RNA: Small nucleolar RNA SNORD111
Organism: Stercorarius parasiticus
RNA sequence: CAGCCUGAAAUGGUGUUAUGGAUUCAUGUCUCUUCUCUGAGAUGUAUCAUGGAGACAACUAGAUGUGUUUCUGAUCAGGCUG
Numbered sequence: 001c002a003g004c005c006u007g008a009a010a011u012g013g014u015g016u017u018a019u020g021g022a023u024u025c026a027u028g029u030c031u032c033u034u035c036u037c038u039g040a041g042a043u044g045u046a047u048c049a050u051g052g053a054g055a056c057a058a059c060u061a062g063a064u065g066u067g068u069u070u071c072u073g074a075u076c077a078g079g080c081u082g
Base pairs, nucleotide, nucleotide: 001082002081003080004079005078